[Rfam]
The record is a 225-nucleotide RNA sequence from Listeria innocua, which matches "Listeria sRNA rliE" in Rfam. Taxonomically the source falls in Listeria (Bacteria, Bacillati, Bacilli, Listeriaceae). It is one of the family's seed sequences. A reference for the family is Mandin et al. (2007), "Identification of new noncoding RNAs in Listeria monocytogenes and prediction of mRNA targets", Nucleic Acids Res.

RNA sequence: UGAAUAAAAGAAAUAAAAAUAGAACUAUAGAUUAUUAGUAAAAAGUAAACCAUCCGCCACCUCCUAGUUGUUACAAACAGAAUAGCAAAGAAGAUUUAUUUUUGCACAUUGAUAAAAUGAUGUUUUCACUGGGUAGACUAACUAAAAAACACCUAUUUUCUACUAAGAGAAAAUAGGUGUUUUUAUUUACUUUUAGCAUACGAAAAUACUAUUUUAGUAGUUUGC
Numbered sequence: 001u002g003a004a005u006a007a008a009a010g011a012a013a014u015a016a017a018a019a020u021a022g023a024a025c026u027a028u029a030g031a032u033u034a035u036u037a038g039u040a041a042a043a044a045g046u047a048a049a050c051c052a053u054c055c056g057c058c059a060c061c062u063c064c065u066a067g068u069u070g071u072u073a074c075a076a077a078c079a080g081a082a083u084a085g086c087a088a089a090g091a092a093g094a095u096u097u098a099u100u101u102u103u104g105c106a107c108a109u110u111g112a113u114a115a116a117a118u119g120a121u122g123u124u125u126u127c128a129c130u131g132g133g134u135a136g137a138c139u140a141a142c143u144a145a146a147a148a149a150c151a152c153c154u155a156u157u158u159u160c161u162a163c164u165a166a167g168a169g170a171a172a173a174u175a176g177g178u179g180u181u182u183u184u185a186u187u188u189a190c191u192u193u194u195a196g197c198a199u200a201c202g203a204a205a206a207u208a209c210u211a212u213u214u215u216a217g218u219a220g221u222u223u224g225c
Base pairs, nucleotide, nucleotide: 028224029223030222031221032220033219034218035217036216037215040214041213042212044210045209051070052069054067056065078202081199085105086104087103088102089101090100091099145184146183147182148181149180150179151178152177153176154175156173157172158171159170160169